[Rfam]
RNA sequence: AGGGGCCACACAUUCUAGGCCAUGGCAGAAGCGCUGAUGGCACGGUCAUGUCAGAUUCCAGCAAAUCUGUGAAUUCUGCU
Numbered sequence: 001a002g003g004g005g006c007c008a009c010a011c012a013u014u015c016u017a018g019g020c021c022a023u024g025g026c027a028g029a030a031g032c033g034c035u036g037a038u039g040g041c042a043c044g045g046u047c048a049u050g051u052c053a054g055a056u057u058c059c060a061g062c063a064a065a066u067c068u069g070u071g072a073a074u075u076c077u078g079c080u
Base pairs, nucleotide, nucleotide: 016048018047019046020045021044024080025079026078027077028076029075030074031043033041052069053068054067055066056065057064
The record is an 80-nucleotide sequence from Alligator sinensis, which matches "Mammalian CPEB3 ribozyme" in Rfam. Its family is annotated with RNA nuclease activity in the Gene Ontology. The match comes from Rfam's covariance-model search (42 bits). Pairs were carried over by alignment from the consensus structure, which is taken from published work.